[Rfam]
RNA sequence: CAAUACCGGACUAUGAAAGCCCACCUCCGAUGAGACGUAGGUUUUCAUAGUACCAGUACCU
Numbered sequence: 001c002a003a004u005a006c007c008g009g010a011c012u013a014u015g016a017a018a019g020c021c022c023a024c025c026u027c028c029g030a031u032g033a034g035a036c037g038u039a040g041g042u043u044u045u046c047a048u049a050g051u052a053c054c055a056g057u058a059c060c061u
Base pairs, nucleotide, nucleotide: 004058005057006056008054009053010051011050012049013048014047015046016045017044018043019042020041021040023038024037025034026033027032
Rfam assigns this 61-nucleotide RNA sequence from Plutella xylostella to the family "mir-8512 microRNA precursor family". Pairs were carried over by alignment from the consensus structure, which was predicted with RNAalifold. Lineage of the source: Eukaryota > Ecdysozoa > Aparaglossata > Plutellidae > Plutella.